Shown here is a 74-nucleotide RNA sequence from Cotesia typhae, a member of the family "mir-219 microRNA precursor family". It scores 71 bits against the family's covariance model. On this family, see Lim et al., Science 2003: "Vertebrate microRNA genes". The family's consensus secondary structure was predicted with RNAalifold.

RNA sequence: UCAGGCUAUGAUUGUCCAAACGCAAUUCUUGUCCGUUUUUAAAUCAAGAAUUGUGUGGGGACAUCAGCGCUUGG
Numbered sequence: 001u002c003a004g005g006c007u008a009u010g011a012u013u014g015u016c017c018a019a020a021c022g023c024a025a026u027u028c029u030u031g032u033c034c035g036u037u038u039u040u041a042a043a044u045c046a047a048g049a050a051u052u053g054u055g056u057g058g059g060g061a062c063a064u065c066a067g068c069g070c071u072u073g074g
Base pairs, nucleotide, nucleotide: 002073003072004071005070006069009066010065011064012063014062015061016060017059021055022054023053024052025051026050027049028048029047030046031045